[Rfam]
RNA: Small Cajal body specific RNA 16
Organism: Mesocricetus auratus
Nucleotides: 181
Stems, first nucleotide, its partner, number of pairs: 003079004008074003014068004019062001023059002025053001028050002031047003091111002096108004119176001121174004129169002135163003140158003145154002
Number, partner (000 for none) and nucleotide at each position: 001000a002000u003079g004078g005077u006076c007000u008074g009073g010072g011000a012000a013000a014068g015067g016066c017065u018000c019062c020000u021000a022000u023059g024058u025053g026000a027000u028050u029049g030000a031047a032046u033045c034000u035000g036000c037000c038000u039000a040000a041000g042000g043000u044000a045033g046032g047031u048000g049029c050028a051000u052000c053025c054000g055000c056000a057000u058024a059023u060000c061000u062019g063000a064000c065017a066016g067015u068014u069000u070000a071000a072010c073009c074008u075000u076006g077005a078004c079003c080000u081000a082000a083000a084000g085000u086000a087000a088000a089000u090000u091111c092110c093000c094000a095000u096108a097107g098106g099105a100000u101000a102000a103000u104000u105099u106098c107097c108096u109000a110092g111091g112000c113000u114000u115000a116000g117000a118000a119176u120000u121174u122173g123172c124171a125000g126000u127000u128000a129169c130168a131000g132000g133000u134000g135163u136162g137161a138000a139000g140158a141157u142156u143000c144000u145154a146153a147000c148000a149000g150000c151000a152000a153146u154145u155000g156142g157141a158140u159000g160000u161137u162136u163135g164000u165000u166000g167000a168130u169129g170000a171124u172123g173122c174121a175000u176119a177000u178000a179000u180000u181000g